[Rfam]
RNA sequence: CCCAGGGCGUUGCCCUGGGCUAUUGUCUUGCGCCCCUUUGGGGCU
Numbered sequence: 001c002c003c004a005g006g007g008c009g010u011u012g013c014c015c016u017g018g019g020c021u022a023u024u025g026u027c028u029u030g031c032g033c034c035c036c037u038u039u040g041g042g043g044c045u
Stems, first nucleotide, its partner, number of pairs: 001019008032044005
RNA: Acido-Lenti-1 RNA